Small nucleolar RNA SNORD42: a 63-nucleotide sequence from Tupaia belangeri.
The literature on the family includes a 2002 paper in Mol Cell Biol by Galardi et al., "Purified box C/D snoRNPs are able to reproduce site-specific 2'-O-methylation of target RNA in vitro".
The match comes from Rfam's covariance-model search (54 bits).
RNA sequence: GCACAAUGAUGGAAACAAACUAUUUAGAAGAGAAUGAUAUGAACAAAGGAACCACUGAUGUGC
Numbered sequence: 001g002c003a004c005a006a007u008g009a010u011g012g013a014a015a016c017a018a019a020c021u022a023u024u025u026a027g028a029a030g031a032g033a034a035u036g037a038u039a040u041g042a043a044c045a046a047a048g049g050a051a052c053c054a055c056u057g058a059u060g061u062g063c
Stems, first nucleotide, its partner, number of pairs: 001063005
Rfam classes the family as a C/D-box small nucleolar RNA. Rfam's curators write: snoRNA U42 is found in intron 3 of the ribosomal protein L23a (RPL23a) gene in humans and is also present in mice.